The record is a 317-nucleotide RNA sequence from Oryzias latipes, which matches "7SK RNA" in Rfam.
From the family's description: 7SK was discovered as an abundant small nuclear RNA in the mid-70s but a possible function has only recently been suggested. Two independent studies have found that 7SK RNA binds the CDK9/cyclin T complex (known as elongation factor P-TEFb). P-TEFb activates transcription by phosphorylating the C-terminal domain of RNA polymerase II. This process is negatively regulated by the 7SK RNP. The secondary structure of 7SK RNA shown here was proposed by Wasserman and Steitz on the basis of chemical modification and enzymatic cleavage experiments.
Its Rfam clan is "7SK clan".
Taxonomically the source falls in Oryzias (Eukaryota, Gnathostomata, Teleostei, Eurypterygia).
It is one of the family's seed sequences.

[Rfam]
RNA sequence: GGAUGUGAGGGCGAUCUGGCUGCGACAUCUGUCACCCCAUUGAUCGCUAGGGUUGAUUCGGCUGAUCUGGCUGGCUAGGCGGGUGUCCCCUUCCUCCCUCACCGGUCCAUGAGAGUCCCUCCCGAAGCUCUGCGCUCGGUGGCAGCGGACGGUGUCCCCCAGCGGUGGACGACCAUUCAUCGGUAUACCAGUAGCUGCGCUCCCCUGCUAGAACCUCCAAACAAGCUCAAGGCCAAUAGGAGAAACGUAGGGAAGUCAAGCUCCAAGCUUCAGACACAUCCAACUGCGGCGCUGCACGUGGCAGUCUGCCUUCCUUU
Numbered sequence: 001g002g003a004u005g006u007g008a009g010g011g012c013g014a015u016c017u018g019g020c021u022g023c024g025a026c027a028u029c030u031g032u033c034a035c036c037c038c039a040u041u042g043a044u045c046g047c048u049a050g051g052g053u054u055g056a057u058u059c060g061g062c063u064g065a066u067c068u069g070g071c072u073g074g075c076u077a078g079g080c081g082g083g084u085g086u087c088c089c090c091u092u093c094c095u096c097c098c099u100c101a102c103c104g105g106u107c108c109a110u111g112a113g114a115g116u117c118c119c120u121c122c123c124g125a126a127g128c129u130c131u132g133c134g135c136u137c138g139g140u141g142g143c144a145g146c147g148g149a150c151g152g153u154g155u156c157c158c159c160c161a162g163c164g165g166u167g168g169a170c171g172a173c174c175a176u177u178c179a180u181c182g183g184u185a186u187a188c189c190a191g192u193a194g195c196u197g198c199g200c201u202c203c204c205c206u207g208c209u210a211g212a213a214c215c216u217c218c219a220a221a222c223a224a225g226c227u228c229a230a231g232g233c234c235a236a237u238a239g240g241a242g243a244a245a246c247g248u249a250g251g252g253a254a255g256u257c258a259a260g261c262u263c264c265a266a267g268c269u270u271c272a273g274a275c276a277c278a279u280c281c282a283a284c285u286g287c288g289g290c291g292c293u294g295c296a297c298g299u300g301g302c303a304g305u306c307u308g309c310c311u312u313c314c315u316u317u
Stems, first nucleotide, its partner, number of pairs: 001108003005102007013093002018090002024087010035074002037070003042067004046062003116168002118165002121162001122139004127135002140161003147157003194261003200255002203252006215242004221237001282317002286312001288310003291305005